[Rfam]
RNA sequence: GUAACACUCAAAAAAUGGCGGCACUUUCUUCAGUGCCACAGAAAGUGCCCCCACAGUUUGAGUGCCAC
Dot-bracket structure: ....((((((((...(((.(((((((((............))))))))).)))...))))))))....
Numbered sequence: 001g002u003a004a005c006a007c008u009c010a011a012a013a014a015a016u017g018g019c020g021g022c023a024c025u026u027u028c029u030u031c032a033g034u035g036c037c038a039c040a041g042a043a044a045g046u047g048c049c050c051c052c053a054c055a056g057u058u059u060g061a062g063u064g065c066c067a068c
Stems, first nucleotide, its partner, number of pairs: 005064008016053003020049009

Description:
The record is a 68-nucleotide RNA from Galemys pyrenaicus, which matches "mir-290 microRNA precursor family" in Rfam. The source organism's lineage runs through Eukaryota, Sarcopterygii, Tetrapoda, Mammalia and Galemys. Rfam links the family to the GO terms RISC complex and miRNA-mediated post-transcriptional gene silencing. Rfam 15.1 lists 565 matches to the family in 128 species. The family's consensus secondary structure was predicted with RNAalifold. On this family, see Houbaviy et al., Dev Cell 2003: "Embryonic stem cell-specific MicroRNAs".